The family of this 106-nucleotide sequence from Sodalis ligni is "Yersinia sRNA 224". On this family, see Righetti et al., Proc Natl Acad Sci U S A 2016: "Temperature-responsive in vitro RNA structurome of Yersinia pseudotuberculosis". NCBI's taxonomy places the organism under Bacteria, Gammaproteobacteria, Enterobacterales, Bruguierivoracaceae, Sodalis. It is annotated as a small RNA. Rfam 15.1 lists 130 matches to the family in 13 species.
RNA sequence: UAGCUUAUUGACAACGUGCCCGGUCGGGACAGAAUGCUAGAUCGUAAACCCGCCGUGAAUACGUCCUUGUAGGCUCGAUCCGCGCCAUCCCUGGCGCGGACGGUUU
Numbered sequence: 001u002a003g004c005u006u007a008u009u010g011a012c013a014a015c016g017u018g019c020c021c022g023g024u025c026g027g028g029a030c031a032g033a034a035u036g037c038u039a040g041a042u043c044g045u046a047a048a049c050c051c052g053c054c055g056u057g058a059a060u061a062c063g064u065c066c067u068u069g070u071a072g073g074c075u076c077g078a079u080c081c082g083c084g085c086c087a088u089c090c091c092u093g094g095c096g097c098g099g100a101c102g103g104u105u106u
Stems, first nucleotide, its partner, number of pairs: 013106002017102002020028002031075002040065003044062003051055001080099008